Rfam assigns this 91-nucleotide RNA from Nocardioides mesophilus to the family "Bacterial small signal recognition particle RNA". From the family's description: The signal recognition particle (SRP) is a universally conserved ribonucleoprotein involved in the co-translational targeting of proteins to membranes. Rfam links the family to the GO terms signal recognition particle, plasma membrane targeting and SRP-dependent cotranslational protein targeting to membrane, signal sequence recognition. It is annotated as a non-coding RNA gene. Pairs were carried over by alignment from the consensus structure, which is taken from published work. Its Rfam clan is "SRP clan". The source organism's lineage runs through Bacteria, Actinomycetes, Propionibacteriales, Nocardioidaceae and Nocardioides. The literature on the family includes a 2003 paper in Nucleic Acids Res by Rosenblad et al., "SRPDB: Signal Recognition Particle Database".
[Rfam]
RNA sequence: AACCCCCCGUGCGGCGGCACCUCGCCCAACUCCCCCAGGGCCGGAAGGCAGCAAGGGCAAGUGAGCUCUGUCGGGUGCGCGGGGGCCUUUU
Number, nucleotide and partner (000 for none) at each position: 001a000002a000003c000004c085005c084006c083007c082008c081009g080010u079011g078012c075013g000014g000015c073016g072017g071018c070019a069020c000021c065022u064023c063024g062025c061026c000027c000028a000029a000030c000031u000032c057033c056034c055035c000036c000037a000038g000039g000040g049041c048042c047043g000044g000045a000046a000047g042048g041049c040050a000051g000052c000053a000054a000055g034056g033057g032058c000059a000060a000061g025062u024063g023064a022065g021066c000067u000068c000069u019070g018071u017072c016073g015074g000075g012076u000077g000078c011079g010080c009081g008082g007083g006084g005085g004086c000087c000088u000089u000090u000091u000